[Rfam]
RNA sequence: CCUGCGGCGAAAACUCGAUGUUUUCGAAAAAGGGCUGUCCUGCGCGACGUGAUCAUGUCGCGCCGGGAACGACUUUCCGUUCCCCGCUAUGAGCCCAACGGCUCCCUGUGCGCCACGUCCCCGAAAGGGACGUGGCGUGCGGGUC
Numbered sequence: 001c002c003u004g005c006g007g008c009g010a011a012a013a014c015u016c017g018a019u020g021u022u023u024u025c026g027a028a029a030a031a032g033g034g035c036u037g038u039c040c041u042g043c044g045c046g047a048c049g050u051g052a053u054c055a056u057g058u059c060g061c062g063c064c065g066g067g068a069a070c071g072a073c074u075u076u077c078c079g080u081u082c083c084c085c086g087c088u089a090u091g092a093g094c095c096c097a098a099c100g101g102c103u104c105c106c107u108g109u110g111c112g113c114c115a116c117g118u119c120c121c122c123g124a125a126a127g128g129g130a131c132g133u134g135g136c137g138u139g140c141g142g143g144u145c
Stems, first nucleotide, its partner, number of pairs: 008026005037087002042063009065084007091104005105142002108140014

Annotation
The family of this 145-nucleotide RNA sequence from Paraburkholderia acidisoli is "sbcD RNA". NCBI's taxonomy places the organism under Bacteria, Betaproteobacteria, Burkholderiales, Burkholderiaceae, Paraburkholderia.